[Rfam]
RNA sequence: UGGGGGAACAACCCCAGUGGCGGGGCCAGCUCUGGAAACUUGGAUUCAGCCCCCACAGGAACUCUGAAGCACUGUGCCUGCAGGGCCUGGAGGCUCUGGGGGUGG
Numbered sequence: 001u002g003g004g005g006g007a008a009c010a011a012c013c014c015c016a017g018u019g020g021c022g023g024g025g026c027c028a029g030c031u032c033u034g035g036a037a038a039c040u041u042g043g044a045u046u047c048a049g050c051c052c053c054c055a056c057a058g059g060a061a062c063u064c065u066g067a068a069g070c071a072c073u074g075u076g077c078c079u080g081c082a083g084g085g086c087c088u089g090g091a092g093g094c095u096c097u098g099g100g101g102g103u104g105g
Stems, first nucleotide, its partner, number of pairs: 002097004009089002012085003019078004024073002029070003033066004039059004
RNA: mir-8834 microRNA precursor family
Organism: Canis lupus